[Rfam]
RNA sequence: GCUGAGGAGUGAUGACAAAAAAGGCCGAAUUGCAGUGCUUGCUAACAGUUUUCUCUCUAAAAGGCAUGAUGACAAAACCUCCUGAAGCGACCUUUUCGUCUGACCUCAGU
Numbered sequence: 001g002c003u004g005a006g007g008a009g010u011g012a013u014g015a016c017a018a019a020a021a022a023g024g025c026c027g028a029a030u031u032g033c034a035g036u037g038c039u040u041g042c043u044a045a046c047a048g049u050u051u052u053c054u055c056u057c058u059a060a061a062a063g064g065c066a067u068g069a070u071g072a073c074a075a076a077a078c079c080u081c082c083u084g085a086a087g088c089g090a091c092c093u094u095u096u097c098g099u100c101u102g103a104c105c106u107c108a109g110u
Stems, first nucleotide, its partner, number of pairs: 001110007014100003024033002034096002037093001039089001040087001043084002048067002051064001053063002068081002071078001

Small nucleolar RNA SNORD89: a 110-nucleotide RNA sequence from Podarcis lilfordi. A reference for the family is Huttenhofer et al. (2001), "RNomics: an experimental approach that identifies 201 candidates for novel, small, non-messenger RNAs in mouse", EMBO J. From the family's description: snoRNA HBII-289 belongs to the family of C/D snoRNAs. It is the human orthologue of the mouse MBII-289 and has no identified RNA target. Rfam links the family to the GO terms RNA processing and nucleolus. The family has 18 seed sequences and 642 matches in Rfam 15.1. Taxonomically the source falls in Podarcis (Eukaryota, Opisthokonta, Bilateria, Sauria).